Rfam assigns this 110-nucleotide RNA from Atractosteus spatula to the family "Small nucleolar RNA SNORD67".
The family's RNA type in Rfam is C/D-box small nucleolar RNA.
snoRNA HBII-166 belongs to the C/D family of snoRNAs.
Rfam 15.1 lists 781 matches to the family in 618 species.
Gene Ontology terms of the family: RNA processing and nucleolus.
Taxonomically the source falls in Atractosteus (Eukaryota, Eumetazoa, Actinopterygii, Lepisosteidae).
On this family, see Huttenhofer et al., EMBO J 2001: "RNomics: an experimental approach that identifies 201 candidates for novel, small, non-messenger RNAs in mouse".
RNA sequence: UGCAAGAGUGAUGAGUUGCACCAGCUGUUGGAGCAGCUUUGCAGUGGCAGAGCAGCUUCAAUCAGAUUCCUGAUGACAAGCCCAUGUGCACAGGGGCCAUCUGACUUGCA
Numbered sequence: 001u002g003c004a005a006g007a008g009u010g011a012u013g014a015g016u017u018g019c020a021c022c023a024g025c026u027g028u029u030g031g032a033g034c035a036g037c038u039u040u041g042c043a044g045u046g047g048c049a050g051a052g053c054a055g056c057u058u059c060a061a062u063c064a065g066a067u068u069c070c071u072g073a074u075g076a077c078a079a080g081c082c083c084a085u086g087u088g089c090a091c092a093g094g095g096g097c098c099a100u101c102u103g104a105c106u107u108g109c110a
Stems, first nucleotide, its partner, number of pairs: 006107003025065003028061004033056002038051005